[Rfam]
RNA: MIR6288 microRNA precursor family
Organism: Prunus armeniaca
RNA sequence: AUAAAACUAGUCGCUUAUUAUUUUCUAAUUGGUUUUUAGUGUGUUAAAAAUUUUCUAAAAACUAAUUAGAAACUGACAAGUGACUAGUUUUGG
Numbered sequence: 001a002u003a004a005a006a007c008u009a010g011u012c013g014c015u016u017a018u019u020a021u022u023u024u025c026u027a028a029u030u031g032g033u034u035u036u037u038a039g040u041g042u043g044u045u046a047a048a049a050a051u052u053u054u055c056u057a058a059a060a061a062c063u064a065a066u067u068a069g070a071a072a073c074u075g076a077c078a079a080g081u082g083a084c085u086a087g088u089u090u091u092g093g
Base pairs, nucleotide, nucleotide: 002092003091004090005089006088007087008086009085010084011083012082013081014080015079016078018076019075020074022072023071024070025069026068027067028066029065030064031063032062033061034060035059036058037057038056039055